[Rfam]
Rfam assigns this 75-nucleotide sequence from Senna tora to the family "Small nucleolar RNA Z155". Its family is annotated with nucleolus and RNA processing in the Gene Ontology. The literature on the family includes a 2003 paper in Nucleic Acids Res by Chen et al., "The high diversity of snoRNAs in plants: identification and comparative study of 120 snoRNA genes from Oryza sativa".
RNA sequence: CAUUGAAGUGAUGAUAACCUGUUCGGAAUUUUUUGUGUCGAAUAAACAACUCAGACUACAAUUAUCUGAUCAGUG
Numbered sequence: 001c002a003u004u005g006a007a008g009u010g011a012u013g014a015u016a017a018c019c020u021g022u023u024c025g026g027a028a029u030u031u032u033u034u035g036u037g038u039c040g041a042a043u044a045a046a047c048a049a050c051u052c053a054g055a056c057u058a059c060a061a062u063u064a065u066c067u068g069a070u071c072a073g074u075g
Stems, first nucleotide, its partner, number of pairs: 001075006
A search with the family's covariance model found it, with a score of 60 bits. The organism belongs to Senna, within Eukaryota. Pairs were carried over by alignment from the consensus structure. Rfam 15.1 lists 429 matches to the family in 196 species. Rfam classes the family as a C/D-box small nucleolar RNA.